RNA: Purine riboswitch aptamer
Organism: Thermaerobacillus caldiproteolyticus
RNA sequence: ACGAAUAUUGUCAAAAUACGUCGUAUAAUCUCAGGAAUAUGGCCUGAGAGUUUCUACCAAGCUACCGUAAAUAGCUUGACUACGAGGUAUAAUGGGAUAGAG
Numbered sequence: 001a002c003g004a005a006u007a008u009u010g011u012c013a014a015a016a017u018a019c020g021u022c023g024u025a026u027a028a029u030c031u032c033a034g035g036a037a038u039a040u041g042g043c044c045u046g047a048g049a050g051u052u053u054c055u056a057c058c059a060a061g062c063u064a065c066c067g068u069a070a071a072u073a074g075c076u077u078g079a080c081u082a083c084g085a086g087g088u089a090u091a092a093u094g095g096g097a098u099a100g101a102g
Base pairs, nucleotide, nucleotide: 018088019087021085022084023083024082025081029049030048031047032046033045034044035043058078059077060076061075062074063073064072